The record is a 73-nucleotide sequence from Myotis myotis, which matches "mir-9223 microRNA precursor family" in Rfam.
Its family is annotated with RISC complex and miRNA-mediated post-transcriptional gene silencing in the Gene Ontology.
It scores 59 bits against the family's covariance model.
RNA sequence: GGCGGUUCUUGGGUGAGGCCCCUCAGAACCAGGCUCCCUCCUCUGAUUCCCGGUGGGUCACCCAAGAACCGCA
Numbered sequence: 001g002g003c004g005g006u007u008c009u010u011g012g013g014u015g016a017g018g019c020c021c022c023u024c025a026g027a028a029c030c031a032g033g034c035u036c037c038c039u040c041c042u043c044u045g046a047u048u049c050c051c052g053g054u055g056g057g058u059c060a061c062c063c064a065a066g067a068a069c070c071g072c073a
Stems, first nucleotide, its partner, number of pairs: 002072002005069012019055001021053002026049003030045004